Shown here is a 69-nucleotide RNA sequence from Antrihabitans stalagmiti, a member of the family "ASpks TB sRNA". By type it is an antisense RNA. The match comes from Rfam's covariance-model search (64 bits). The base pairs follow the family's consensus structure, which is taken from published work.

RNA sequence: CUUCACGGAUCCGAGCCACAACGGUUGCGACCGGUCCUGUCCGUAGGUCGCCAACAGUGCCUGCGCCUC
Dot-bracket structure: .............((((.....)))).(...((....((.(.(....).).))....))...)......